The family of this 75-nucleotide RNA from Myotis myotis is "mir-9193 microRNA precursor family". Rfam 15.1 lists 6,008 matches to the family in 8 species. The base pairs follow the family's consensus structure, which was predicted with RNAalifold.
[Rfam]
RNA sequence: CUAGAGGGGGGGGGGGUCCCUCAGCCUGGAUUGUGAGAGGGCGCAGGCCAGGCUGAAGGACACCACUGGUGCACU
Dot-bracket structure: ...(..(..((.((.((((.((((((.((.(((((......))))).)).)))))).)))).)).))..).)...